[Rfam]
Record summary: The family of this 99-nucleotide sequence from Rousettus aegyptiacus is "Vault RNA". Rfam's curators write: This family of RNAs are found as part of the enigmatic vault ribonucleoprotein complex. The family's RNA type in Rfam is non-coding RNA gene. It scores 84 bits against the family's covariance model.
RNA sequence: GGGCUGGCUCUAGCUCAGCGGUUCCUUCGGCAAUUCAUCGCUGUUAACCGCUCUCCACUAGGAGUGGUUCGAGACCCGCGGGCGCUUUCCAGCUCUUUU
Number, nucleotide and partner (000 for none) at each position: 001g000002g094003g093004c092005u091006g090007g089008c000009u000010c000011u000012a000013g083014c082015u081016c080017a000018g079019c078020g077021g076022u000023u000024c000025c000026u073027u072028c071029g070030g069031c000032a000033a000034u000035u000036c000037a000038u000039c000040g000041c000042u000043g000044u000045u000046a000047a000048c000049c000050g000051c000052u000053c000054u000055c000056c000057a000058c000059u000060a000061g000062g000063a000064g000065u000066g000067g000068u000069u030070c029071g028072a027073g026074a000075c000076c021077c020078g019079c018080g016081g015082g014083c013084g000085c000086u000087u000088u000089c007090c006091a005092g004093c003094u002095c000096u000097u000098u000099u000